[Rfam]
RNA sequence: UUGAAGGAUUUGAAUACUUCAACUUCCAGACUUGAAUAAUCUGAAGACUUCAACUAGCAUAUUUGGAGAAUUUGAAGUCUUUAAUU
Numbered sequence: 001u002u003g004a005a006g007g008a009u010u011u012g013a014a015u016a017c018u019u020c021a022a023c024u025u026c027c028a029g030a031c032u033u034g035a036a037u038a039a040u041c042u043g044a045a046g047a048c049u050u051c052a053a054c055u056a057g058c059a060u061a062u063u064u065g066g067a068g069a070a071u072u073u074g075a076a077g078u079c080u081u082u083a084a085u086u
Stems, first nucleotide, its partner, number of pairs: 001084006009076006017068005025059001027057001032053005